[Rfam]
RNA sequence: CGGGGAAAAUGCAGCCUCCCCUGAAGAUGGCAGCCAUCCGUCCGGGAACUGCAUCCAAGCGCUGG
Dot-bracket structure: .(((((.....[[[[.)))))....((((......................)))).....]]]].
The family of this 65-nucleotide sequence from Pseudolabrys sp. Root1462 is "chrB-b RNA". The match comes from Rfam's covariance-model search (37 bits). The family's RNA type in Rfam is cis-regulatory element. Taxonomically the source falls in Pseudolabrys (Bacteria, Pseudomonadati, Pseudomonadota, Alphaproteobacteria).